[Rfam]
Nucleotides: 059
Base pairs, nucleotide, nucleotide: 008046009045012041013040014039016037017036018035019034020033021032
Number, partner (000 for none) and nucleotide at each position: 001000u002000g003000a004000g005000u006000u007000c008046a009045u010000u011000u012041g013040a014039a015000c016037c017036u018035g019034g020033u021032g022000a023000u024000c025000u026000a027000u028000u029000g030000u031000c032021c033020a034019u035018c036017a037016g038000a039014u040013u041012c042000u043000g044000c045009a046008u047000a048000a049000a050000a051000g052000c053000c054000a055000a056000a057000g058000a059000c
Description
Lacto-rpoB RNA: a 59-nucleotide RNA sequence from Limosilactobacillus reuteri. The base pairs follow the family's consensus structure, which is taken from published work. Rfam classes the family as a cis-regulatory element. The source organism's lineage runs through Bacteria, Bacilli, Lactobacillales, Limosilactobacillus and Limosilactobacillus reuteri.